The family of this 243-nucleotide sequence from Streptomyces sp. F-3 is "Streptomyces RNA 1601". Rfam classes the family as a small RNA. It scores 178 bits against the family's covariance model. Identified by deep sequencing of transcriptome at the end of exponential growth phase. Appears longer on northern blot than sequencing transcript.
RNA sequence: GACGACCGGUCGGAUGCGUCCGCCGCACCUCAUGCGAAGGAAGGCAUGAGCGUGCGACACGAGUCCGGCCCACAAGUGGAGGCUUCGAACUCCCACCUGACCGCCUUCCGGGGCGGCGGGUCACCGGUCAGGCGGUCCCGCACUCAACAGUGGCAAACCGCCCGAAAGCGCGCCCCGCGGUCCUCGCGGCGGUUGCUCCGGUAGUUCGAGGAGCUCCGCCUGUGAUCGUCCGGGGCAUUUUUU
Numbered sequence: 001g002a003c004g005a006c007c008g009g010u011c012g013g014a015u016g017c018g019u020c021c022g023c024c025g026c027a028c029c030u031c032a033u034g035c036g037a038a039g040g041a042a043g044g045c046a047u048g049a050g051c052g053u054g055c056g057a058c059a060c061g062a063g064u065c066c067g068g069c070c071c072a073c074a075a076g077u078g079g080a081g082g083c084u085u086c087g088a089a090c091u092c093c094c095a096c097c098u099g100a101c102c103g104c105c106u107u108c109c110g111g112g113g114c115g116g117c118g119g120g121u122c123a124c125c126g127g128u129c130a131g132g133c134g135g136u137c138c139c140g141c142a143c144u145c146a147a148c149a150g151u152g153g154c155a156a157a158c159c160g161c162c163c164g165a166a167a168g169c170g171c172g173c174c175c176c177g178c179g180g181u182c183c184u185c186g187c188g189g190c191g192g193u194u195g196c197u198c199c200g201g202u203a204g205u206u207c208g209a210g211g212a213g214c215u216c217c218g219c220c221u222g223u224g225a226u227c228g229u230c231c232g233g234g235g236c237a238u239u240u241u242u243u
Stems, first nucleotide, its partner, number of pairs: 004129006012066004067122005073099002076096004080091002101116006131162005138153004172236006178228003185224003188220005195214005